Rfam assigns this 454-nucleotide RNA sequence from Pluralibacter gergoviae to the family "RNase E 5' UTR element". Rfam classes the family as a cis-regulatory element. Rfam describes the family as follows. This family represents a conserved element found in the 5' UTR of RNase E mRNA. RNase E is a key regulatory enzyme in the pathway of mRNA degradation in E. coli that is able to auto-regulate the degradation of its own mRNA in response to changes in RNase E activity. This rne 5' UTR element acts as a sensor of cellular RNase E concentration enabling tight regulation of RNase E concentration and synthesis. The source organism's lineage runs through Bacteria, Pseudomonadati, Pseudomonadota, Enterobacterales and Pluralibacter. Gene Ontology term of the family: regulation of gene expression.
RNA sequence: UUUUCCGUAUUAUAACUUGUAUGAACAAGCCUGUAGCGGAAUGACCAGUUUUGUCUGAACGAUUAUUUAUGCAGCAAUGGCGUAAGACAUUUUUAUCUUUCAGACAGUUAGCGGGCUGCGGGUUGCAGUCCUUACCGGCUAAUACUCUGAACUUCAAGCCGCAGACGGGCGGCGAACCUGGUUCUCCAGGCGCUACUCCAGUAUGUGACUGGAGUCAGCAGGUGAAACGCACCUGCGACUUGAAAAGAGAUGAGUACGGAUGGAACCUUCUCUGGAGACUGUAUCCCAGGCUGUUCCCCCUGAAUAAUUGCGCUGUGUUUCCGUUUGAAACGCAGGCUACCGACACUCUGCGCCUCUUAAGCGAGCGACAACCGUGAGGUUGGCGACGUGAAUAGUCACGAGGCCAUCGGUUUCCCCCCGGCAAGGAAAACUCUGCCCGUAGCUUAGUCGUCAA
Numbered sequence: 001u002u003u004u005c006c007g008u009a010u011u012a013u014a015a016c017u018u019g020u021a022u023g024a025a026c027a028a029g030c031c032u033g034u035a036g037c038g039g040a041a042u043g044a045c046c047a048g049u050u051u052u053g054u055c056u057g058a059a060c061g062a063u064u065a066u067u068u069a070u071g072c073a074g075c076a077a078u079g080g081c082g083u084a085a086g087a088c089a090u091u092u093u094u095a096u097c098u099u100u101c102a103g104a105c106a107g108u109u110a111g112c113g114g115g116c117u118g119c120g121g122g123u124u125g126c127a128g129u130c131c132u133u134a135c136c137g138g139c140u141a142a143u144a145c146u147c148u149g150a151a152c153u154u155c156a157a158g159c160c161g162c163a164g165a166c167g168g169g170c171g172g173c174g175a176a177c178c179u180g181g182u183u184c185u186c187c188a189g190g191c192g193c194u195a196c197u198c199c200a201g202u203a204u205g206u207g208a209c210u211g212g213a214g215u216c217a218g219c220a221g222g223u224g225a226a227a228c229g230c231a232c233c234u235g236c237g238a239c240u241u242g243a244a245a246a247g248a249g250a251u252g253a254g255u256a257c258g259g260a261u262g263g264a265a266c267c268u269u270c271u272c273u274g275g276a277g278a279c280u281g282u283a284u285c286c287c288a289g290g291c292u293g294u295u296c297c298c299c300c301u302g303a304a305u306a307a308u309u310g311c312g313c314u315g316u317g318u319u320u321c322c323g324u325u326u327g328a329a330a331c332g333c334a335g336g337c338u339a340c341c342g343a344c345a346c347u348c349u350g351c352g353c354c355u356c357u358u359a360a361g362c363g364a365g366c367g368a369c370a371a372c373c374g375u376g377a378g379g380u381u382g383g384c385g386a387c388g389u390g391a392a393u394a395g396u397c398a399c400g401a402g403g404c405c406a407u408c409g410g411u412u413u414c415c416c417c418c419c420g421g422c423a424a425g426g427a428a429a430a431c432u433c434u435g436c437c438c439g440u441a442g443c444u445u446a447g448u449c450g451u452c453a454a
Stems, first nucleotide, its partner, number of pairs: 003041006016029005051107008062096002065093001069090003074081002113445011132424002135421004310337002313335004318330004339411005352404005366385002369382005